A member of the RNA family "Glycine riboswitch aptamer" from Rothia sp. ZJ932, 108 nucleotides long. Taxonomically the source falls in Rothia (Bacteria, Actinomycetes, Micrococcales, Micrococcaceae). Pairs were carried over by alignment from the consensus structure.
RNA sequence: CAACUCUGGAGAGGGGCGUGACACCUCCACCGAAGGGGCAAGCGAAAACCUAUCGCGCGAGUGUAAGGUUUUGGUGAAAACUCUCAGGUUUAUAACAGAGUGGGGAGG
Numbered sequence: 001c002a003a004c005u006c007u008g009g010a011g012a013g014g015g016g017c018g019u020g021a022c023a024c025c026u027c028c029a030c031c032g033a034a035g036g037g038g039c040a041a042g043c044g045a046a047a048a049c050c051u052a053u054c055g056c057g058c059g060a061g062u063g064u065a066a067g068g069u070u071u072u073g074g075u076g077a078a079a080a081c082u083c084u085c086a087g088g089u090u091u092a093u094a095a096c097a098g099a100g101u102g103g104g105g106a107g108g
Base pairs, nucleotide, nucleotide: 001103003101004100005099006098007097008096013027014026015025016024029089030088031087032085033084036083037082038081